The family of this 52-nucleotide RNA from Lentivirus humimdef1 is "HIV Ribosomal frameshift signal". Rfam classes the family as a frameshift element. The family's consensus secondary structure is taken from published work. Rfam's curators write: This family represents the HIV Ribosomal frameshift signal. NCBI's taxonomy places the organism under Viruses, Artverviricota, Retroviridae, Orthoretrovirinae, Lentivirus humimdef1.
[Rfam]
RNA sequence: UUUUUUAGGAAAAAUUUGGCCUUCCCGCAACGGAAGGCCAGGGAACUUCCUU
Numbered sequence: 001u002u003u004u005u006u007a008g009g010a011a012a013a014a015u016u017u018g019g020c021c022u023u024c025c026c027g028c029a030a031c032g033g034a035a036g037g038c039c040a041g042g043g044a045a046c047u048u049c050c051u052u
Base pairs, nucleotide, nucleotide: 008052009051012048013047015042016041017040018039019038020037021036022035023034024033025032